A member of the RNA family "T-box leader" from Bacillus sp. B-jedd, 227 nucleotides long. The organism belongs to Bacillus, within Bacteria. Rfam 15.1 lists 19,395 matches to the family in 1,923 species. Rfam's curators write: Uncharged tRNA acts as the effector for transcription antitermination of genes in the T-box leader family. T-boxes are found upstream of many aminoacyl-tRNA synthetase genes and some amino acid biosynthetic genes usually in Gram-positive bacteria. The anticodon of a specific tRNA base pairs to a specifier sequence within the T-box motif, and the NCCA acceptor tail of the tRNA base pairs to a conserved bulge in the T-box antiterminator hairpin. The match comes from Rfam's covariance-model search (98 bits). The base pairs follow the family's consensus structure, which is taken from published work.
RNA sequence: GGAAAAACGAUGAAGGAUCGAGUAUGCCGUUCGUAAUCCAACCGCUGAAGGCGGACAGAGAGGGCUUCCAUGGCUGGAAGAAGCCCGGGGUGAAAAAUAGCAGAACGCUAAUCCGGAGUGCAGCCAAUACCUGCCGUUAUGCCGCGUUAAGGCAAUAUUGAGAGAUGGGCGCCGGCUUUACGCCCAUAAUCAGGGUGGUACCGCGAGAAUAAGCUCUCGUCCCUGUC
Numbered sequence: 001g002g003a004a005a006a007a008c009g010a011u012g013a014a015g016g017a018u019c020g021a022g023u024a025u026g027c028c029g030u031u032c033g034u035a036a037u038c039c040a041a042c043c044g045c046u047g048a049a050g051g052c053g054g055a056c057a058g059a060g061a062g063g064g065c066u067u068c069c070a071u072g073g074c075u076g077g078a079a080g081a082a083g084c085c086c087g088g089g090g091u092g093a094a095a096a097a098u099a100g101c102a103g104a105a106c107g108c109u110a111a112u113c114c115g116g117a118g119u120g121c122a123g124c125c126a127a128u129a130c131c132u133g134c135c136g137u138u139a140u141g142c143c144g145c146g147u148u149a150a151g152g153c154a155a156u157a158u159u160g161a162g163a164g165a166u167g168g169g170c171g172c173c174g175g176c177u178u179u180a181c182g183c184c185c186a187u188a189a190u191c192a193g194g195g196u197g198g199u200a201c202c203g204c205g206a207g208a209a210u211a212a213g214c215u216c217u218c219g220u221c222c223c224u225g226u227c
Stems, first nucleotide, its partner, number of pairs: 007119002015114004025102003029098002036091003063085006121133003135146003165187007192224004203220005